[Rfam]
RNA sequence: CCCACCCUGAGGUGUUUGCCAGUCAACAAGUCCUCGAGCCGAUAAUCUAUACCCCGGGGGUAGCUAGUCAGUACCCGUGUGCAGGUCCGGUCUACGGAAAGCCUUAGGUACUGCAGAGACCCCCACCUUGAACCUUACGGUUCAAGGCCAAGUUGACAGCGGCACCCUCGGGGCUCCU
Number, nucleotide and partner (000 for none) at each position: 001c000002c000003c000004a000005c173006c172007c171008u170009g169010a168011g167012g165013u164014g163015u162016u000017u161018g160019c159020c000021a000022g000023u000024c000025a000026a000027c000028a000029a000030g000031u000032c147033c146034u145035c000036g143037a142038g141039c140040c139041g000042a000043u000044a000045a000046u000047c000048u000049a000050u000051a000052c000053c000054c000055c000056g124057g123058g122059g000060g120061u119062a000063g000064c116065u115066a000067g114068u000069c113070a112071g111072u110073a109074c108075c107076c000077g000078u000079g000080u000081g102082c101083a000084g000085g000086u098087c097088c096089g095090g000091u000092c000093u000094a000095c089096g088097g087098a086099a000100a000101g082102c081103c000104u000105u000106a000107g075108g074109u073110a072111c071112u070113g069114c067115a065116g064117a000118g000119a061120c060121c000122c058123c057124c056125a000126c000127c000128u000129u000130g000131a000132a000133c000134c000135u000136u000137a000138c000139g040140g039141u038142u037143c036144a000145a034146g033147g032148c000149c000150a000151a000152g000153u000154u000155g000156a000157c000158a000159g019160c018161g017162g015163c014164a013165c012166c000167c011168u010169c009170g008171g007172g006173g005174c000175u000176c000177c000178u000
Rfam assigns this 178-nucleotide RNA sequence from Pseudomaricurvus sp. HS19 to the family "6S / SsrS RNA". It scores 94 bits against the family's covariance model. The organism belongs to Pseudomaricurvus, within Bacteria. E. coli 6S RNA was the first non coding RNA to be sequenced, but its function was unknown until recently. It consists of 184 nucleotides that fold into an extended hairpin structure with a large single-stranded internal bulge. A reference for the family is Trotochaud and Wassarman (2005), "A highly conserved 6S RNA structure is required for regulation of transcription", Nat Struct Mol Biol. The family's consensus secondary structure is taken from published work.